UnaL2 LINE 3' element: a 54-nucleotide RNA sequence from Gadus morhua.
RNA sequence: AAAUGUACUUACUGUAAGUCCCUUUGGAUAAAAGUGUCUGCUAAAUGUCCUAAA
Numbered sequence: 001a002a003a004u005g006u007a008c009u010u011a012c013u014g015u016a017a018g019u020c021c022c023u024u025u026g027g028a029u030a031a032a033a034g035u036g037u038c039u040g041c042u043a044a045a046u047g048u049c050c051u052a053a054a
Base pairs, nucleotide, nucleotide: 013043014041015040016039020036022034023033024032025031
Record summary:
The family has 30 seed sequences and 493,311 matches in Rfam 15.1. Lineage of the source: Eukaryota > Eumetazoa > Gnathostomata > Teleostomi > Gadus. From the family's description: The eel long interspersed element (LINE) UnaL2 and its partner short interspersed element (SINE) share a conserved 3' tail containing a stem-loop that is critical for their retrotransposition. Presumably, the first step of retrotransposition is the recognition of their 3' tails by UnaL2-encoded reverse transcriptase. The solution structure of a 17-nucleotide RNA derived from the 3' tail of UnaL2 was determined by NMR.